The record is an 87-nucleotide RNA from Limnobacter sp. MED105, which matches "tRNA" in Rfam.
Pairs were carried over by alignment from the consensus structure, which is taken from published work.
Taxonomically the source falls in Limnobacter (Bacteria, Pseudomonadota, Burkholderiales, Burkholderiaceae).
It is annotated as a transfer RNA.
RNA sequence: GGAAGCUUGGCAGAGCGGUUGAAUGCACCGGUCUUGAAAACCGGCGAGGGUGCGAGCCCUCCGUGAGUUCGAAUCUCACAGCUUCCG
Numbered sequence: 001g002g003a004a005g006c007u008u009g010g011c012a013g014a015g016c017g018g019u020u021g022a023a024u025g026c027a028c029c030g031g032u033c034u035u036g037a038a039a040a041c042c043g044g045c046g047a048g049g050g051u052g053c054g055a056g057c058c059c060u061c062c063g064u065g066a067g068u069u070c071g072a073a074u075c076u077c078a079c080a081g082c083u084u085c086c087g
Stems, first nucleotide, its partner, number of pairs: 001086007010026003028044005063079005